Record summary
The family of this 135-nucleotide sequence from Upupa epops is "Small Cajal body specific RNA 3". scaRNAs are a specific class of small nuclear RNAs which localise to the Cajal bodies and guide the modification of RNA polymerase II transcribed spliceosomal RNAs U1, U2, U4, U5 and U12. The family has 23 seed sequences and 642 matches in Rfam 15.1. Rfam classes the family as a small Cajal body RNA.
[Rfam]
RNA sequence: GCUGGGACCAGUUGGGACCAAUCAUGGGCAAAAGAUGCAUGUUUUGUCCAUCACUGCAGUCUUCCUAGAAUGAAGUGGAGGUCUCUGUCUGUUUUAGGACAGCCAACUGAACCAGAUCGUUCCCCUCCAUACACA
Numbered sequence: 001g002c003u004g005g006g007a008c009c010a011g012u013u014g015g016g017a018c019c020a021a022u023c024a025u026g027g028g029c030a031a032a033a034g035a036u037g038c039a040u041g042u043u044u045u046g047u048c049c050a051u052c053a054c055u056g057c058a059g060u061c062u063u064c065c066u067a068g069a070a071u072g073a074a075g076u077g078g079a080g081g082u083c084u085c086u087g088u089c090u091g092u093u094u095u096a097g098g099a100c101a102g103c104c105a106a107c108u109g110a111a112c113c114a115g116a117u118c119g120u121u122c123c124c125c126u127c128c129a130u131a132c133a134c135a
Base pairs, nucleotide, nucleotide: 004065005064006063009059011057012056025050026049027048028047029046034043035042036041077128078127079126080125081124085119087117088116089115091113093111094110095109096108097107

The literature on the family includes a 2001 paper in EMBO J by Huttenhofer et al., "RNomics: an experimental approach that identifies 201 candidates for novel, small, non-messenger RNAs in mouse".